A member of the RNA family "Small nucleolar RNA snoR27" from Ziziphus jujuba, 93 nucleotides long. By type it is a C/D-box small nucleolar RNA. The family is grouped with related families in Rfam's "snR68 clan".
[Rfam]
RNA sequence: AUUGGGUCAGUGAUGCUAACAAAAUCUGCGUUAUCUAUCUGCAAUUUCCAAUAUUGGAAUUUGAAGAUAAAUGAUAUGUUACUGAGAUCUGAU
Numbered sequence: 001a002u003u004g005g006g007u008c009a010g011u012g013a014u015g016c017u018a019a020c021a022a023a024a025u026c027u028g029c030g031u032u033a034u035c036u037a038u039c040u041g042c043a044a045u046u047u048c049c050a051a052u053a054u055u056g057g058a059a060u061u062u063g064a065a066g067a068u069a070a071a072u073g074a075u076a077u078g079u080u081a082c083u084g085a086g087a088u089c090u091g092a093u
Stems, first nucleotide, its partner, number of pairs: 001093007